[Rfam]
RNA sequence: CGGCGGGAAACCUCUCCCCACCGAGAGGCGCCUAUCUGGAAGGGUAGAGACA
Numbered sequence: 001c002g003g004c005g006g007g008a009a010a011c012c013u014c015u016c017c018c019c020a021c022c023g024a025g026a027g028g029c030g031c032c033u034a035u036c037u038g039g040a041a042g043g044g045u046a047g048a049g050a051c052a
Base pairs, nucleotide, nucleotide: 011028012027013026014025015024016023032047033046034045035044036043037042